[Rfam]
RNA sequence: UGGGUGGCUGCAUCGUCUGAUCAACGGUGGCGCACGGUUCUCAUCCGGCAAGUAAAUAUUUCUGACUUCGUUAUGCGCAAGCGCAGUCACAACCCCGAGCGGAGAUUUCCGCGGGGCUUGUGGUCUGUUUACUGCGCCCAUUUUGCCUUGCCCUU
Numbered sequence: 001u002g003g004g005u006g007g008c009u010g011c012a013u014c015g016u017c018u019g020a021u022c023a024a025c026g027g028u029g030g031c032g033c034a035c036g037g038u039u040c041u042c043a044u045c046c047g048g049c050a051a052g053u054a055a056a057u058a059u060u061u062c063u064g065a066c067u068u069c070g071u072u073a074u075g076c077g078c079a080a081g082c083g084c085a086g087u088c089a090c091a092a093c094c095c096c097g098a099g100c101g102g103a104g105a106u107u108u109c110c111g112c113g114g115g116g117c118u119u120g121u122g123g124u125c126u127g128u129u130u131a132c133u134g135c136g137c138c139c140a141u142u143u144u145g146c147c148u149u150g151c152c153c154u155u
Stems, first nucleotide, its partner, number of pairs: 001047005006039005011029005030078005065149001069145001086124005099112005